A member of the RNA family "Small nucleolar RNA snR80" from Cadophora sp. DSE1049, 165 nucleotides long. Rfam classes the family as an H/ACA-box small nucleolar RNA. It scores 46 bits against the family's covariance model. A reference for the family is Schattner et al. (2004), "Genome-wide searching for pseudouridylation guide snoRNAs: analysis of the Saccharomyces cerevisiae genome", Nucleic Acids Res. Rfam 15.1 lists 447 matches to the family in 358 species.

[Rfam]
RNA sequence: AUACGUCUCAAACACUCUGGGCCUUGCUUCCCUUCCCUUGUGGAUCGGUUCAAUCUAUGGCAUAGCCCUAUUUUUGGAAGACGAAGACUGAUUUCGUCCGAUUACUCACCGCGAUAUCUUAUCCUUCGGGCGUAGAUAUAGUGGUCCAUAUCUUCUGGUCGACAU
Numbered sequence: 001a002u003a004c005g006u007c008u009c010a011a012a013c014a015c016u017c018u019g020g021g022c023c024u025u026g027c028u029u030c031c032c033u034u035c036c037c038u039u040g041u042g043g044a045u046c047g048g049u050u051c052a053a054u055c056u057a058u059g060g061c062a063u064a065g066c067c068c069u070a071u072u073u074u075u076g077g078a079a080g081a082c083g084a085a086g087a088c089u090g091a092u093u094u095c096g097u098c099c100g101a102u103u104a105c106u107c108a109c110c111g112c113g114a115u116a117u118c119u120u121a122u123c124c125u126u127c128g129g130g131c132g133u134a135g136a137u138a139u140a141g142u143g144g145u146c147c148a149u150a151u152c153u154u155c156u157g158g159u160c161g162a163c164a165u
Base pairs, nucleotide, nucleotide: 007080008079019068020067021066022065025062026061027060028059030048031047034044035043036042096160098158099157109144110143111142112141114139115138116137117136118135119134